A member of the RNA family "Small nucleolar RNA snoR138" from Citrus sinensis, 149 nucleotides long. Gene Ontology terms of the family: nucleolus and RNA processing. The base pairs follow the family's consensus structure, which was predicted with mfold. The family's RNA type in Rfam is H/ACA-box small nucleolar RNA. It scores 65 bits against the family's covariance model.

RNA sequence: AAUGCCUCAGAAUAACCAGAAGGUUAAAUUUUUAACCACACCGUUUGGUUCAGACAGAGGCUUAUAGCAAAACCCCGCAGCACAAAGGUAUUAAUAAAUCUUCCCAUUUCUUGUUAUUUGGGAUUUUCUCCUUAUAGCUUCGGAUAUUU
Numbered sequence: 001a002a003u004g005c006c007u008c009a010g011a012a013u014a015a016c017c018a019g020a021a022g023g024u025u026a027a028a029u030u031u032u033u034a035a036c037c038a039c040a041c042c043g044u045u046u047g048g049u050u051c052a053g054a055c056a057g058a059g060g061c062u063u064a065u066a067g068c069a070a071a072a073c074c075c076c077g078c079a080g081c082a083c084a085a086a087g088g089u090a091u092u093a094a095u096a097a098a099u100c101u102u103c104c105c106a107u108u109u110c111u112u113g114u115u116a117u118u119u120g121g122g123a124u125u126u127u128c129u130c131c132u133u134a135u136a137g138c139u140u141c142g143g144a145u146a147u148u149u
Stems, first nucleotide, its partner, number of pairs: 004061005014050007023041002076142002079139003083120003088117003094111001096109004